[Rfam]
RNA sequence: GCCGAGAGGGUGGCGGUCAUACAAUACCUUUAUGGAAAAGCCGUCCGCCGUGCUUACAGCGGUUUCGAGCCUCUUGGCACCCUAUU
Numbered sequence: 001g002c003c004g005a006g007a008g009g010g011u012g013g014c015g016g017u018c019a020u021a022c023a024a025u026a027c028c029u030u031u032a033u034g035g036a037a038a039a040g041c042c043g044u045c046c047g048c049c050g051u052g053c054u055u056a057c058a059g060c061g062g063u064u065u066c067g068a069g070c071c072u073c074u075u076g077g078c079a080c081c082c083u084a085u086u
Base pairs, nucleotide, nucleotide: 001078002077003076004075005074006073007072008071009070012045013044014043015042017040027035028034047063048062049061050060051059
RNA: sRNA-Xcc1